RNA: Pseudomonas sRNA CrcZ
RNA sequence: AUAACAAGAAUAAAAAGCAGCAAACCCAUAAAAAUAAGACGUACCGACUCUGACAUAACAAGAACAACACGGCAGAGACGCAGCUAACAGAUUCUUUUGGAGCAGGUGUGCUUUCAGGGAGCCUCCGGGUCACCCGCAACCGGGCAGAGAACAAUAAAACUACCUCAAGGUAGCCCCGAACUGGUUGGAUCACCUGAUAAGGCAAGUCAGCGCUCAAAAAAAUAUGUUUGCUCUUUGACCCCGGAUGGGGGUCGCCAGAACAGCGGUAAAGGGCCACGGUUGACAAAAACAACAACAGACCGCCCCUCAAUAACAAGAAAAGAGCACACAAAACGCAUUCAAGGGGAGCUUCGGCUCCCCUUCGUGUUUCUGGGCCAUUCACCUCUCCCCCUGCG
Numbered sequence: 001a002u003a004a005c006a007a008g009a010a011u012a013a014a015a016a017g018c019a020g021c022a023a024a025c026c027c028a029u030a031a032a033a034a035u036a037a038g039a040c041g042u043a044c045c046g047a048c049u050c051u052g053a054c055a056u057a058a059c060a061a062g063a064a065c066a067a068c069a070c071g072g073c074a075g076a077g078a079c080g081c082a083g084c085u086a087a088c089a090g091a092u093u094c095u096u097u098u099g100g101a102g103c104a105g106g107u108g109u110g111c112u113u114u115c116a117g118g119g120a121g122c123c124u125c126c127g128g129g130u131c132a133c134c135c136g137c138a139a140c141c142g143g144g145c146a147g148a149g150a151a152c153a154a155u156a157a158a159a160c161u162a163c164c165u166c167a168a169g170g171u172a173g174c175c176c177c178g179a180a181c182u183g184g185u186u187g188g189a190u191c192a193c194c195u196g197a198u199a200a201g202g203c204a205a206g207u208c209a210g211c212g213c214u215c216a217a218a219a220a221a222a223u224a225u226g227u228u229u230g231c232u233c234u235u236u237g238a239c240c241c242c243g244g245a246u247g248g249g250g251g252u253c254g255c256c257a258g259a260a261c262a263g264c265g266g267u268a269a270a271g272g273g274c275c276a277c278g279g280u281u282g283a284c285a286a287a288a289a290c291a292a293c294a295a296c297a298g299a300c301c302g303c304c305c306c307u308c309a310a311u312a313a314c315a316a317g318a319a320a321a322g323a324g325c326a327c328a329c330a331a332a333a334c335g336c337a338u339u340c341a342a343g344g345g346g347a348g349c350u351u352c353g354g355c356u357c358c359c360c361u362u363c364g365u366g367u368u369u370c371u372g373g374g375c376c377a378u379u380c381a382c383c384u385c386u387c388c389c390c391c392u393g394c395g
Stems, first nucleotide, its partner, number of pairs: 045080002048077004095219005109212003137187007160173005238252005272376004277302004324367004341362009